[Rfam]
RNA sequence: AAGUUGUACUAGGGGAGCCUGAAAUGGCUGAGAGGAACGAUAAUGUUUUGACCCUUGGAACCCGAUCUAGAUAAUACUAGCGUGGGGAAGUGCAGUCGAACAAUU
Numbered sequence: 001a002a003g004u005u006g007u008a009c010u011a012g013g014g015g016a017g018c019c020u021g022a023a024a025u026g027g028c029u030g031a032g033a034g035g036a037a038c039g040a041u042a043a044u045g046u047u048u049u050g051a052c053c054c055u056u057g058g059a060a061c062c063c064g065a066u067c068u069a070g071a072u073a074a075u076a077c078u079a080g081c082g083u084g085g086g087g088a089a090g091u092g093c094a095g096u097c098g099a100a101c102a103a104u105u
Stems, first nucleotide, its partner, number of pairs: 006093005011055004016049001017028003035048005061086004067080004
Dot-bracket structure: .....(((((((((.((((......)))......(((((....))))))..)))).....((((..((((......))))..))))..)))))............

Shown here is a 105-nucleotide RNA from Saliterribacillus persicus, a member of the family "TPP riboswitch aptamer (THI element)". On this family, see Rodionov et al., J Biol Chem 2002: "Comparative genomics of thiamin biosynthesis in procaryotes. New genes and regulatory mechanisms". From the family's description: Vitamin B(1) in its active form thiamin pyrophosphate (TPP) is an essential coenzyme that is synthesised by coupling of pyrimidine and thiazole moieties in bacteria.